[Rfam]
RNA sequence: AAAGAACGUAAUCUAAUACUACCCUCCGAUUGCUUAAUUCCACCGCCUAGUGUUAGAGGCGGUUU
Numbered sequence: 001a002a003a004g005a006a007c008g009u010a011a012u013c014u015a016a017u018a019c020u021a022c023c024c025u026c027c028g029a030u031u032g033c034u035u036a037a038u039u040c041c042a043c044c045g046c047c048u049a050g051u052g053u054u055a056g057a058g059g060c061g062g063u064u065u
Base pairs, nucleotide, nucleotide: 003014004013005012042063043062044061045060046059047058048057

The record is a 65-nucleotide RNA sequence from Coleofasciculus chthonoplastes, which matches "Nitrogen stress-induced RNA 4" in Rfam. Rfam classes the family as a small RNA. Gene Ontology term of the family: posttranscriptional regulation of gene expression. The family's consensus secondary structure was predicted with RNAalifold.